[Rfam]
RNA sequence: CGCGUCGUCAUUGGGGAGUAGCCGCCCCGCGCCAUCGCGGGGGCUUGCGUCAACACACUUGGCCGGUCGCGGUCAUGGCGCAAGCGGUUCCGAUGCCCGCCACCGGCGGGCAU
Numbered sequence: 001c002g003c004g005u006c007g008u009c010a011u012u013g014g015g016g017a018g019u020a021g022c023c024g025c026c027c028c029g030c031g032c033c034a035u036c037g038c039g040g041g042g043g044c045u046u047g048c049g050u051c052a053a054c055a056c057a058c059u060u061g062g063c064c065g066g067u068c069g070c071g072g073u074c075a076u077g078g079c080g081c082a083a084g085c086g087g088u089u090c091c092g093a094u095g096c097c098c099g100c101c102a103c104c105g106g107c108g109g110g111c112a113u
Stems, first nucleotide, its partner, number of pairs: 026041003043085010060075005
RNA: Manganese Mn2+ riboswitch aptamer (yybP-ykoY)
Organism: Noviherbaspirillum humi